[Rfam]
RNA: Alphaproteobacterial sRNA ar35
Organism: Brucella anthropi
RNA sequence: AUAGGCAUUGCUUAAGAGCGCUGGAACGCGUCUGUCGCUCGCAAUAGCCUUCAUCGCUUGAUGCUUUUGACCACGGAUGUACUGGCACUGGUAGGAAAGCGAUGAUCAGGAAGGUCGGUGCGUUUUCGCCCCGGCCUUUUUUGUU
Numbered sequence: 001a002u003a004g005g006c007a008u009u010g011c012u013u014a015a016g017a018g019c020g021c022u023g024g025a026a027c028g029c030g031u032c033u034g035u036c037g038c039u040c041g042c043a044a045u046a047g048c049c050u051u052c053a054u055c056g057c058u059u060g061a062u063g064c065u066u067u068u069g070a071c072c073a074c075g076g077a078u079g080u081a082c083u084g085g086c087a088c089u090g091g092u093a094g095g096a097a098a099g100c101g102a103u104g105a106u107c108a109g110g111a112a113g114g115u116c117g118g119u120g121c122g123u124u125u126u127c128g129c130c131c132c133g134g135c136c137u138u139u140u141u142u143g144u145u
Stems, first nucleotide, its partner, number of pairs: 003050004007045003016040005053103007062093004068087002071085003105144002108141011120129003